A member of the RNA family "c-di-AMP riboswitch aptamer (ydaO/yuaA leader)" from Streptomyces glaucescens, 172 nucleotides long. NCBI's taxonomy places the organism under Bacteria, Actinomycetes, Kitasatosporales, Streptomycetaceae, Streptomyces.
[Rfam]
RNA sequence: GCCACCCAACCGCGAACUCACUCGUACGGCAGGAGCGGGGGACCCAGGUAUGCCGCCGGUCCGGGCACGCACCCGGACCGGCUCGGGGUGAAGCCGUGCGCUCAGGCGCACGGCCGGGCACCUCCCAGCCCGAACCCGACAGCUCACCUCGCAGGCGCCGGAGAGGACAUUC
Numbered sequence: 001g002c003c004a005c006c007c008a009a010c011c012g013c014g015a016a017c018u019c020a021c022u023c024g025u026a027c028g029g030c031a032g033g034a035g036c037g038g039g040g041g042a043c044c045c046a047g048g049u050a051u052g053c054c055g056c057c058g059g060u061c062c063g064g065g066c067a068c069g070c071a072c073c074c075g076g077a078c079c080g081g082c083u084c085g086g087g088g089u090g091a092a093g094c095c096g097u098g099c100g101c102u103c104a105g106g107c108g109c110a111c112g113g114c115c116g117g118g119c120a121c122c123u124c125c126c127a128g129c130c131c132g133a134a135c136c137c138g139a140c141a142g143c144u145c146a147c148c149u150c151g152c153a154g155g156c157g158c159c160g161g162a163g164a165g166g167a168c169a170u171u172c
Stems, first nucleotide, its partner, number of pairs: 001156003005033002035152006045085001086137003094113006116131004
Dot-bracket structure: (((.((.........................)).((((((....(.......................................)(((.....((((((........))))))..((((........))))...))).........)))))).)))................